[Rfam]
RNA sequence: GCGAGACACCUGGGCCCGCGGCAGAGUCCGACCGAUAAGCUGUUCUCGGACGACGACGGGCGCAGCCCCCGUCCCGUCCGCCAAUGAUCAGUCAGCAGCCGCUGCAACCCCAGGGAG
Numbered sequence: 001g002c003g004a005g006a007c008a009c010c011u012g013g014g015c016c017c018g019c020g021g022c023a024g025a026g027u028c029c030g031a032c033c034g035a036u037a038a039g040c041u042g043u044u045c046u047c048g049g050a051c052g053a054c055g056a057c058g059g060g061c062g063c064a065g066c067c068c069c070c071g072u073c074c075c076g077u078c079c080g081c082c083a084a085u086g087a088u089c090a091g092u093c094a095g096c097a098g099c100c101g102c103u104g105c106a107a108c109c110c111c112a113g114g115g116a117g
Stems, first nucleotide, its partner, number of pairs: 048079005056072005093104004
Streptomyces-metK RNA: a 117-nucleotide RNA sequence from Streptomyces spongiae.